[Rfam]
Nucleotides: 202
Base pairs, nucleotide, nucleotide: 022082023081024080025079026078028076030074031073032072092127093126094125095124096123102115103114104113105112128144129143130142131141132140148192149191150190151189152188153187154186163176164175165174166173167172
Number, partner (000 for none) and nucleotide at each position: 001000a002000g003000u004000a005000a006000a007000g008000c009000u010000a011000u012000a013000g014000c015000g016000c017000c018000a019000u020000g021000c022082a023081c024080c025079u026078g027000g028076g029000u030074c031073g032072g033000g034000u035000c036000g037000u038000g039000a040000a041000c042000a043000g044000u045000a046000a047000c048000g049000g050000a051000u052000g053000a054000a055000u056000g057000a058000a059000u060000a061000a062000u063000a064000a065000c066000u067000u068000a069000c070000u071000g072032c073031u074030g075000a076028c077000a078026c079025a080024g081023g082022u083000u084000a085000a086000c087000g088000a089000g090000g091000u092127g093126g094125a095124g096123a097000g098000a099000g100000a101000a102115u103114c104113g105112a106000a107000c108000a109000u110000a111000u112105u113104c114103g115102g116000c117000g118000g119000g120000u121000g122000c123096u124095c125094u126093c127092c128144c129143a130142u131141g132140c133000a134000g135000u136000c137000c138000g139000g140132g141131c142130g143129u144128g145000u146000u147000u148192u149191a150190u151189a152188c153187c154186a155000g156000a157000a158000a159000a160000a161000u162000a163176u164175g165174c166173g167172g168000g169000u170000a171000a172167c173166u174165g175164c176163a177000a178000a179000a180000c181000a182000a183000a184000g185000c186154u187153g188152g189151u190150a191149u192148a193000a194000c195000c196000g197000g198000a199000c200000a201000g202000a
Description:
A member of the RNA family "glmS glucosamine-6-phosphate activated ribozyme aptamer" from Clostridium sp. CAG:7, 202 nucleotides long. Taxonomically the source falls in Clostridium (Bacteria, Clostridia, Eubacteriales, Clostridiaceae).